The record is a 61-nucleotide sequence from Cylindrospermopsis raciborskii, which matches "Plastid-psbN 5UTR RNA" in Rfam.
A reference for the family is Richter et al. (2023), "Retrograde signaling in plants: A critical review focusing on the GUN pathway and beyond", Plant Commun.
Rfam's curators write: Plastid psbN is a non-coding RNA (ncRNA) recognised in plastids. It was reported as a conserved 11 stem-loop in the prime untranslated region (5UTR) of psbN genes.
The organism belongs to Cylindrospermopsis raciborskii, within Bacteria.
Rfam 15.1 lists 2,345 matches to the family in 397 species.
It scores 52 bits against the family's covariance model.
The family's consensus secondary structure was predicted with LocARNA.
RNA sequence: AAAAACAGCCAUUAAAGGAGUUGUACCCCAACCAGGAGCUACCUUACCAUAUUCAGCGUUU
Numbered sequence: 001a002a003a004a005a006c007a008g009c010c011a012u013u014a015a016a017g018g019a020g021u022u023g024u025a026c027c028c029c030a031a032c033c034a035g036g037a038g039c040u041a042c043c044u045u046a047c048c049a050u051a052u053u054c055a056g057c058g059u060u061u
Base pairs, nucleotide, nucleotide: 017045018044020042021041023039024038026036027035